Group II catalytic intron D1-D4-2: a 118-nucleotide RNA from Kosmotoga sp.
The base pairs follow the family's consensus structure.
Group II introns are found in rRNA, tRNA and mRNA of organelles in fungi, plants and protists, and also in mRNA in bacteria.
The organism belongs to Kosmotoga, within Bacteria.
Rfam links the family to the GO term Group II intron splicing.
On this family, see Bonen and Vogel, Trends Genet 2001: "The ins and outs of group II introns".
RNA sequence: GAGGGAAGGCCCCUUGAAGUCGUCAUACAGGUGAAGGCUUCAAACCACCGUAAGCUGCUGUGGUAAAGAGCCAUGGUGGUGAGCGUUACGGAAAAGGCGGGACAUGAUCCUGUCAGGU
Dot-bracket structure: (((((.....)))))((((((.((((....)))).))))))....(.((((((((.(((.((((.....)))).))).)).....))))))....((((((.......))))))..).
Numbered sequence: 001g002a003g004g005g006a007a008g009g010c011c012c013c014u015u016g017a018a019g020u021c022g023u024c025a026u027a028c029a030g031g032u033g034a035a036g037g038c039u040u041c042a043a044a045c046c047a048c049c050g051u052a053a054g055c056u057g058c059u060g061u062g063g064u065a066a067a068g069a070g071c072c073a074u075g076g077u078g079g080u081g082a083g084c085g086u087u088a089c090g091g092a093a094a095a096g097g098c099g100g101g102a103c104a105u106g107a108u109c110c111u112g113u114c115a116g117g118u
Stems, first nucleotide, its partner, number of pairs: 001015005016041006023034004046117001048091006054080002057077003061073004096114006